Shown here is a 138-nucleotide RNA from Rhodopseudomonas palustris, a member of the family "TPP riboswitch aptamer (THI element)". Pairs were carried over by alignment from the consensus structure, which is taken from published work.

RNA sequence: GCCCGUUCCGAGGGGGGCUCCGACGAGGAGCUGAGAUACCGCACGCUCGCCGCUUCGCUCCGCGAGGCACAGAGACCGCGGUGACCCUUUGAACCUGAUCCGGGUCAUGCCGGCGAAGGGACAGGGAUGCAUCAGACA
Numbered sequence: 001g002c003c004c005g006u007u008c009c010g011a012g013g014g015g016g017g018c019u020c021c022g023a024c025g026a027g028g029a030g031c032u033g034a035g036a037u038a039c040c041g042c043a044c045g046c047u048c049g050c051c052g053c054u055u056c057g058c059u060c061c062g063c064g065a066g067g068c069a070c071a072g073a074g075a076c077c078g079c080g081g082u083g084a085c086c087c088u089u090u091g092a093a094c095c096u097g098a099u100c101c102g103g104g105u106c107a108u109g110c111c112g113g114c115g116a117a118g119g120g121a122c123a124g125g126g127a128u129g130c131a132u133c134a135g136a137c138a
Stems, first nucleotide, its partner, number of pairs: 006126003010122001011088004017031005038082005094119003100113004
On this family, see Rodionov et al., J Biol Chem 2002: "Comparative genomics of thiamin biosynthesis in procaryotes. New genes and regulatory mechanisms".